[Rfam]
RNA sequence: AUAAAAAAGCCUGCAGAUUUUGACAUCUGCAGGCACCUUUUUGGAAUAGACGAAUGCUAUUCCAAAAGGUAAAGGGAGAGGAGAAACCGGAGGAAGAACUUAUGGGGAAACGUAAGCCUUCUCCGUCU
Numbered sequence: 001a002u003a004a005a006a007a008a009g010c011c012u013g014c015a016g017a018u019u020u021u022g023a024c025a026u027c028u029g030c031a032g033g034c035a036c037c038u039u040u041u042u043g044g045a046a047u048a049g050a051c052g053a054a055u056g057c058u059a060u061u062c063c064a065a066a067a068g069g070u071a072a073a074g075g076g077a078g079a080g081g082a083g084a085a086a087c088c089g090g091a092g093g094a095a096g097a098a099c100u101u102a103u104g105g106g107g108a109a110a111c112g113u114a115a116g117c118c119u120u121c122u123c124c125g126u127c128u
Base pairs, nucleotide, nucleotide: 009034010033011032012031013030014029015028016027017026036075037074038073039072044062045061046060047059048058049057088125089124090123091122093121094120095119096118099116100115101114102113
RNA: ylbH leader